Shown here is a 449-nucleotide part of an RNA from Diaporthe helianthi, a member of the family "Ascomycota telomerase RNA". It is annotated as a non-coding RNA gene. The literature on the family includes a 2013 paper in Nucleic Acids Res by Qi et al., "The common ancestral core of vertebrate and fungal telomerase RNAs". The match comes from Rfam's covariance-model search (420 bits). The organism belongs to Diaporthe, within Eukaryota.
RNA sequence: UCACACGGAAAGAGCUUCUUCCUGGCACGACUGAUGGCCCUUGUCACAGCAUCCUGUAGUGUCUUUUUUGUUUUGGUGGCGUGGGCGCUUCUAUGACGACAGGGCUCCUUUGGGUACGUUUACGAUGCGGGCUCUGGCUGAGUUGUGGGUGUGAGUACCAUGGGACGGACUGAUCGAUCAGGUUCGCGGGGCUCUGUUCACUUGGUAUGCUGCGCCUGGCGAGUUUCUUUUGCUUGGUGUACAGCAGGAUCGGGACCCAUCCCGAUUUGGAGUCAAAGUUUUGUGCUUGUCCGGUUCUGUUGUCGCCCUUGUAAUAGGCUCUUGCUCUGGCAGCUUCAUGCAAGUGUCGCACGCUGUUAUCUGAUCUCCAUUUGGAAAGGGACAGGGUUCGUGAAGAGCAGUCCCAGCUGCUCUCUCUCCAGCAAUGGCGAGAGAGCGGCCCCCUUUUU
Number, nucleotide and partner (000 for none) at each position: 001u000002c000003a000004c000005a000006c000007g000008g000009a000010a000011a000012g000013a000014g000015c000016u000017u000018c000019u000020u000021c000022c000023u000024g000025g000026c000027a000028c000029g000030a000031c000032u000033g000034a000035u000036g000037g000038c000039c000040c000041u000042u000043g000044u000045c000046a000047c000048a000049g000050c000051a000052u000053c000054c000055u000056g000057u000058a000059g000060u000061g000062u000063c000064u000065u000066u000067u000068u000069u000070g000071u000072u000073u000074u000075g000076g000077u000078g000079g000080c000081g000082u000083g000084g000085g000086c000087g000088c000089u000090u000091c000092u000093a000094u000095g000096a000097c000098g000099a000100c000101a000102g000103g000104g000105c000106u000107c000108c000109u000110u000111u000112g000113g000114g000115u000116a000117c000118g000119u000120u000121u000122a000123c000124g000125a000126u000127g000128c000129g000130g000131g000132c000133u000134c000135u000136g000137g000138c000139u000140g000141a000142g000143u000144u000145g000146u000147g000148g000149g000150u000151g000152u000153g000154a000155g000156u000157a000158c000159c000160a000161u000162g000163g000164g000165a000166c000167g000168g000169a000170c000171u000172g000173a000174u000175c000176g000177a000178u000179c000180a000181g000182g000183u000184u000185c000186g000187c000188g000189g000190g000191g000192c000193u000194c000195u000196g000197u000198u000199c000200a000201c000202u000203u000204g000205g000206u000207a000208u000209g000210c000211u000212g000213c000214g000215c000216c000217u000218g000219g000220c000221g000222a000223g000224u000225u000226u000227c000228u000229u000230u000231u000232g000233c000234u000235u000236g000237g000238u000239g000240u000241a000242c000243a000244g000245c000246a000247g000248g000249a000250u000251c000252g000253g000254g274255a273256c272257c270258c269259a268260u000261c000262c000263c000264g000265a000266u000267u000268u259269g258270g257271a000272g256273u255274c254275a000276a288277a287278g286279u285280u000281u000282u000283g000284u000285g279286c278287u277288u276289g000290u000291c000292c000293g000294g000295u000296u000297c000298u000299g000300u000301u000302g000303u000304c000305g000306c000307c000308c000309u000310u000311g000312u000313a000314a000315u000316a000317g000318g000319c000320u000321c000322u000323u000324g000325c000326u000327c000328u000329g000330g000331c000332a000333g000334c000335u000336u000337c000338a000339u000340g000341c000342a000343a000344g000345u000346g000347u000348c000349g000350c000351a000352c000353g000354c000355u000356g000357u000358u000359a000360u000361c000362u000363g000364a000365u000366c000367u000368c000369c000370a000371u000372u000373u000374g000375g000376a000377a000378a000379g000380g000381g000382a000383c000384a000385g000386g000387g000388u000389u000390c000391g000392u000393g000394a000395a000396g000397a000398g000399c000400a000401g000402u000403c000404c000405c000406a000407g000408c000409u000410g000411c000412u000413c000414u000415c000416u000417c000418u000419c000420c000421a000422g000423c000424a000425a000426u000427g000428g000429c000430g000431a000432g000433a000434g000435a000436g000437c000438g000439g000440c000441c000442c000443c000444c000445u000446u000447u000448u000449u000